RNA sequence: CAAAAGGCCCUUCUCAGGGCCACCCAAUUUUUGCAUUGGCUGAGUG
Number, nucleotide and partner (000 for none) at each position: 001c000002a000003a000004a000005a000006g021007g020008c019009c018010c017011u016012u000013c000014u000015c000016a011017g010018g009019g008020c007021c006022a000023c000024c000025c000026a000027a000028u000029u000030u000031u000032u000033g000034c000035a000036u000037u000038g000039g000040c000041u000042g000043a000044g000045u000046g000
RNA: Histone 3' UTR stem-loop